[Rfam]
RNA sequence: GGGCAGGAUAGGUGAAGUGGGCCCACCGCUGCGCGUUGACCCCACUUCACUGUCCCUUGUUCGCGCCCAGGGGCGCUCAACGGGCAUCCUGCUCUGCGAGGCU
Dot-bracket structure: (((((((((..((((((.(((..((.(((...))).))..))).))))))...(((......(((((....))))).....))).))))))))).........